The record is an 87-nucleotide RNA from Protea cynaroides, which matches "small nucleolar RNA snoR117" in Rfam.
The match comes from Rfam's covariance-model search (48 bits).
A reference for the family is Chen and Wu (2009), "Mining small RNA sequencing data: a new approach to identify small nucleolar RNAs in Arabidopsis", Nucleic Acids Res.
Rfam 15.1 lists 419 matches to the family in 211 species.
The family's RNA type in Rfam is C/D-box small nucleolar RNA.
Its family is annotated with RNA processing and nucleolus in the Gene Ontology.
The family's consensus secondary structure was predicted with RNAalifold.

RNA sequence: GGCCUGUGUUGGACAACAAUUGUCCAUAGCUUAUGAGAUCUUAAUAGAUUUUCUGAUGUGGUUUUUUACCUCUAGGUUCUGAGGCCA
Numbered sequence: 001g002g003c004c005u006g007u008g009u010u011g012g013a014c015a016a017c018a019a020u021u022g023u024c025c026a027u028a029g030c031u032u033a034u035g036a037g038a039u040c041u042u043a044a045u046a047g048a049u050u051u052u053c054u055g056a057u058g059u060g061g062u063u064u065u066u067u068a069c070c071u072c073u074a075g076g077u078u079c080u081g082a083g084g085c086c087a
Stems, first nucleotide, its partner, number of pairs: 001086004